[Rfam]
RNA sequence: CUGUAGCACUCGUACACUGCCGUUUCUGCGUCGUCCGCGCACACCUGACGACUGCUUGCUACGGUUUGGUAGCU
Number, nucleotide and partner (000 for none) at each position: 001c000002u016003g015004u014005a013006g000007c000008a000009c000010u000011c000012g000013u005014a004015c003016a002017c000018u000019g000020c000021c033022g032023u000024u030025u000026c000027u000028g000029c000030g024031u000032c022033g021034u000035c000036c000037g000038c000039g000040c000041a000042c000043a000044c000045c072046u071047g070048a000049c068050g067051a066052c000053u000054g000055c000056u000057u000058g000059c000060u000061a000062c000063g000064g000065u000066u051067u050068g049069g000070u047071a046072g045073c000074u000
Shown here is a 74-nucleotide sequence from Xanthomonas oryzae, a member of the family "Xanthomonas sRNA sX9". A reference for the family is Schmidtke et al. (2011), "Genome-wide transcriptome analysis of the plant pathogen Xanthomonas identifies sRNAs with putative virulence functions", Nucleic Acids Res. Rfam classes the family as a small RNA.